Notes: Gammaprotebacteria rimP leader: a 99-nucleotide RNA sequence from Arsenophonus endosymbiont of Aphis craccivora. Gene Ontology term of the family: regulation of gene expression. The match comes from Rfam's covariance-model search (92 bits). On this family, see Naville and Gautheret, Genome Biol 2010: "Premature terminator analysis sheds light on a hidden world of bacterial transcriptional attenuation". Lineage of the source: Bacteria > Pseudomonadati > Pseudomonadota > Gammaproteobacteria > Arsenophonus.

[Rfam]
RNA sequence: AACCUACUUGCAGUGUAUAGGGUCCAGUUGCAUAAAGCCCCGGUUUUCGGGGUUUUUUGUUAUUUAAAACAGAAUUACUGGGCUUUUAGCCCUUUUUUU
Numbered sequence: 001a002a003c004c005u006a007c008u009u010g011c012a013g014u015g016u017a018u019a020g021g022g023u024c025c026a027g028u029u030g031c032a033u034a035a036a037g038c039c040c041c042g043g044u045u046u047u048c049g050g051g052g053u054u055u056u057u058u059g060u061u062a063u064u065u066a067a068a069a070c071a072g073a074a075u076u077a078c079u080g081g082g083c084u085u086u087u088a089g090c091c092c093u094u095u096u097u098u099u
Base pairs, nucleotide, nucleotide: 034056035055036054037053038052039051040050041049042048080092081091082090083089